[Rfam]
RNA sequence: GGUGAACCCGUGCACUACAGGGUCCAGUUGCAUAAAGCCCCGAAUUUCGGGGUUUUUUGUUAUUUGACAAUCGAAUUAACUGGGCUUUUAUAGCCCUUUUUUU
Number, nucleotide and partner (000 for none) at each position: 001g000002g000003u000004g000005a000006a000007c000008c000009c000010g000011u000012g000013c000014a000015c000016u000017a000018c000019a000020g000021g000022g000023u000024c000025c000026a000027g000028u000029u000030g000031c000032a000033u000034a056035a055036a054037g053038c052039c051040c050041c049042g048043a000044a000045u000046u000047u000048c042049g041050g040051g039052g038053u037054u036055u035056u034057u000058u000059g000060u000061u000062a000063u000064u000065u000066g000067a000068c000069a000070a000071u000072c000073g000074a000075a000076u000077u000078a000079a000080c000081u000082g096083g095084g094085c093086u000087u000088u000089u000090a000091u000092a000093g085094c084095c083096c082097u000098u000099u000100u000101u000102u000103u000
Rfam assigns this 103-nucleotide RNA sequence from Providencia rettgeri to the family "Gammaprotebacteria rimP leader". The base pairs follow the family's consensus structure, which is taken from published work. Rfam's curators put it in the seed alignment. Rfam classes the family as a cis-regulatory leader.